The record is a 147-nucleotide RNA sequence from Acinetobacter baylyi, which matches "FMN riboswitch aptamer (RFN element)" in Rfam.

RNA sequence: CAUCGCUUCAGGGCGGGGCGUAAUUCCCCACCGGCGGUAAGCUCAACACGAGCAAGCCCGCGAGCAAUUGGACCAUUUAAUGGCGUCAAUCGCAGAUCUGGUGUAAAUCCAGAGCCGACGGUAUAGUCCGGAUGAAAGAAGACGACG
Numbered sequence: 001c002a003u004c005g006c007u008u009c010a011g012g013g014c015g016g017g018g019c020g021u022a023a024u025u026c027c028c029c030a031c032c033g034g035c036g037g038u039a040a041g042c043u044c045a046a047c048a049c050g051a052g053c054a055a056g057c058c059c060g061c062g063a064g065c066a067a068u069u070g071g072a073c074c075a076u077u078u079a080a081u082g083g084c085g086u087c088a089a090u091c092g093c094a095g096a097u098c099u100g101g102u103g104u105a106a107a108u109c110c111a112g113a114g115c116c117g118a119c120g121g122u123a124u125a126g127u128c129c130g131g132a133u134g135a136a137a138g139a140a141g142a143c144g145a146c147g
Base pairs, nucleotide, nucleotide: 003145004144005143006141007140008139009138016028017027018026030127031126032117033116034061035060036059037058056115057114064093065092097113098112099111100110101109119130120129121128
Dot-bracket structure: ..(((((((......(((.......))).[[((((((..................[[))))..((..........................))...(((((.......)))))]])).(((....]]))).......)))).)))..
Its family is annotated with FMN binding in the Gene Ontology.